[Rfam]
RNA sequence: UGAUGCCAGGGUCAAAAGGUCUAAAUCCACAUGAGCUUGCUCAUAAGUGGAUGAAAGAUCUUGGGACCCGCCCCAAUAUGAGCCUAGAAGUGGGAUGACAAUCCCACGAUAUGCGAAUAAUUGGGAGGAUUGUGAGAGUGCAAAGCACGGAACAAUCCGUAGGCAUCA
Numbered sequence: 001u002g003a004u005g006c007c008a009g010g011g012u013c014a015a016a017a018g019g020u021c022u023a024a025a026u027c028c029a030c031a032u033g034a035g036c037u038u039g040c041u042c043a044u045a046a047g048u049g050g051a052u053g054a055a056a057g058a059u060c061u062u063g064g065g066a067c068c069c070g071c072c073c074c075a076a077u078a079u080g081a082g083c084c085u086a087g088a089a090g091u092g093g094g095a096u097g098a099c100a101a102u103c104c105c106a107c108g109a110u111a112u113g114c115g116a117a118u119a120a121u122u123g124g125g126a127g128g129a130u131u132g133u134g135a136g137a138g139u140g141c142a143a144a145g146c147a148c149g150g151a152a153c154a155a156u157c158c159g160u161a162g163g164c165a166u167c168a
Base pairs, nucleotide, nucleotide: 001168002167003166004165005164006163007162010068011067012066013065017061018060019059020058021057022056025052026051027050028049029048030047031044032043033042034041035040072125073124074123075122076121077119078118079117082114083113085111090107091106092105093104094103095102096101127158128157129156130155131154132153133152138148139147140146141145
A member of the RNA family "Clostridiales-1 RNA" from Dorea formicigenerans, 168 nucleotides long. Pairs were carried over by alignment from the consensus structure, which is taken from published work. Rfam classes the family as a small RNA. The sequence is in the family's curated seed alignment.